[Rfam]
RNA sequence: AUUUGUUUGUUGAUGGUCAUCUAUUCAUCAUUCUGCAUAGUUUUUGCACCCAUUAUCCUAUGGUUAGAUGAACAUCAACAAACAUCUU
Numbered sequence: 001a002u003u004u005g006u007u008u009g010u011u012g013a014u015g016g017u018c019a020u021c022u023a024u025u026c027a028u029c030a031u032u033c034u035g036c037a038u039a040g041u042u043u044u045u046g047c048a049c050c051c052a053u054u055a056u057c058c059u060a061u062g063g064u065u066a067g068a069u070g071a072a073c074a075u076c077a078a079c080a081a082a083c084a085u086c087u088u
Stems, first nucleotide, its partner, number of pairs: 005083011017071007025063004
Source information
Shown here is an 88-nucleotide RNA sequence from Nicotiana tabacum, a member of the family "MIR827 microRNA precursor family". Rfam's curators put it in the seed alignment. The organism belongs to Nicotiana, within Eukaryota.